[Rfam]
Nucleotides: 067
Stems, first nucleotide, its partner, number of pairs: 004064014019049010
Number, partner (000 for none) and nucleotide at each position: 001000c002000u003000a004064c005063a006062u007061a008060c009059u010058g011057a012056g013055u014054g015053g016052c017051c018000a019049g020048a021047u022046u023045a024044u025043u026042a027041u028040g029000a030000c031000c032000u033000c034000u035000g036000a037000a038000c039000a040028c041027a042026u043025a044024a045023u046022a047021a048020u049019c050000u051017g052016g053015c054014c055013a056012u057011u058010c059009a060008g061007u062006g063005u064004g065000u066000g067000u
About this RNA: A member of the RNA family "mir-9256 microRNA precursor family" from Pipistrellus kuhlii, 67 nucleotides long. Lineage of the source: Eukaryota > Eumetazoa > Euteleostomi > Theria > Pipistrellus. Pairs were carried over by alignment from the consensus structure, which was predicted with RNAalifold.